[Rfam]
RNA sequence: UGGCCCGAAGUGAUGAUUCACAUUCAUGUCUCUUCUCUGAUAAACCUCUUGAAGAAGAUUCUGUGUAUCUGAUCAGGCCU
Numbered sequence: 001u002g003g004c005c006c007g008a009a010g011u012g013a014u015g016a017u018u019c020a021c022a023u024u025c026a027u028g029u030c031u032c033u034u035c036u037c038u039g040a041u042a043a044a045c046c047u048c049u050u051g052a053a054g055a056a057g058a059u060u061c062u063g064u065g066u067a068u069c070u071g072a073u074c075a076g077g078c079c080u
Stems, first nucleotide, its partner, number of pairs: 002079004
RNA: Small nucleolar RNA SNORD111